About this RNA: mir-2807 microRNA precursor family: an 83-nucleotide RNA from Bombyx mori. Rfam links the family to the GO terms miRNA-mediated post-transcriptional gene silencing and RISC complex. A reference for the family is Cai et al. (2010), "Novel microRNAs in silkworm (Bombyx mori)", Funct Integr Genomics. A search with the family's covariance model found it, with a score of 55 bits. The family's consensus secondary structure was predicted with RNAalifold.
[Rfam]
RNA sequence: CUAACUCAAAUUUGUAUGCAGUUGGAAAAAGGCCCCUAGGGCAAACGUAGGCAAACGUUCUAACUCCAUACAAGUUUGAGUUA
Numbered sequence: 001c002u003a004a005c006u007c008a009a010a011u012u013u014g015u016a017u018g019c020a021g022u023u024g025g026a027a028a029a030a031g032g033c034c035c036c037u038a039g040g041g042c043a044a045a046c047g048u049a050g051g052c053a054a055a056c057g058u059u060c061u062a063a064c065u066c067c068a069u070a071c072a073a074g075u076u077u078g079a080g081u082u083a
Stems, first nucleotide, its partner, number of pairs: 008077009018067001020065008034051002039046001
Dot-bracket structure: .......(((((((((.(.((((((((......((...(......)...))......)))))))).).)))))))))......